Rfam assigns this 165-nucleotide RNA sequence from Halorubrum sp. JWXQ-INN 858 to the family "Sense overlapping transcript RNA 0042 (sot)". The family's RNA type in Rfam is small RNA. The organism belongs to Halorubrum, within Archaea. It is associated with IS1341-type transposase (tnpB) genes, at the 3'-end in H. salinarum NRC-1.
Nucleotides: 165
Stems, first nucleotide, its partner, number of pairs: 004037001007034004013029006039055005058115006065108006084097004128142004133137001144165009
Number, partner (000 for none) and nucleotide at each position: 001000a002000g003000a004037u005000a006000a007034c008033u009032c010031a011000g012000a013029a014028u015027c016026c017025u018024c019000c020000g021000a022000c023000a024018g025017a026016g027015g028014a029013u030000a031010u032009g033008a034007g035000u036000a037004a038000c039055g040054g041053u042052c043051g044000u045000u046000u047000g048000g049000c050000a051043c052042g053041g054040c055039c056000a057000g058115u059114a060113g061112c062111c063110u064000a065108c066107u067106u068105g069104u070103u071000c072000a073000a074000c075000c076000a077000a078000a079000c080000c081000u082000c083000u084097g085096g086095g087094u088000c089000g090000u091000u092000c093000c094087a095086c096085c097084c098000g099000a100000g101000g102000a103070a104069a105068c106067a107066g108065g109000u110063g111062g112061g113060u114059u115058g116000c117000g118000a119000a120000c121000c122000c123000u124000a125000a126000u127000a128142u129141c130140c131139c132000a133137a134000c135000g136000c137133u138000c139131g140130g141129g142128a143000a144165u145164c146163c147162u148161c149160g150159c151158c152157c153000u154000u155000u156000a157152g158151g159150g160149c161148g162147g163146g164145g165144a